[Rfam]
RNA sequence: CUGCGGGGAUGAUCUCCCUGAACUCUCUCUUGCUGAUGGGGCGGUGAGGAAGCUCCGUGACAGGCUCUGAGUGGC
Number, nucleotide and partner (000 for none) at each position: 001c074002u073003g072004c071005g000006g000007g000008g000009a000010u000011g000012a000013u000014c000015u000016c000017c000018c000019u000020g000021a000022a000023c000024u000025c000026u000027c000028u000029c000030u000031u000032g000033c000034u000035g000036a000037u000038g000039g000040g000041g000042c000043g000044g000045u000046g000047a000048g000049g000050a000051a000052g000053c000054u000055c000056c000057g000058u000059g000060a000061c000062a000063g000064g000065c000066u000067c000068u000069g000070a000071g004072u003073g002074g001075c000